[Rfam]
RNA: mir-459 microRNA precursor family
Organism: Astyanax mexicanus
RNA sequence: CCUCCUGCUGUCAGUAACAAGGAUUCAUCCUGUUGUGAAAAUACAGUUUCAGCAGGGAAUCUCUGUUACUGGCCGUAAAGGA
Numbered sequence: 001c002c003u004c005c006u007g008c009u010g011u012c013a014g015u016a017a018c019a020a021g022g023a024u025u026c027a028u029c030c031u032g033u034u035g036u037g038a039a040a041a042u043a044c045a046g047u048u049u050c051a052g053c054a055g056g057g058a059a060u061c062u063c064u065g066u067u068a069c070u071g072g073c074c075g076u077a078a079a080g081g082a
Stems, first nucleotide, its partner, number of pairs: 011072009021062006029056007037049003
Dot-bracket structure: ..........(((((((((.((((((..(((((((.(((.......)))))))))))))))).)))))))))..........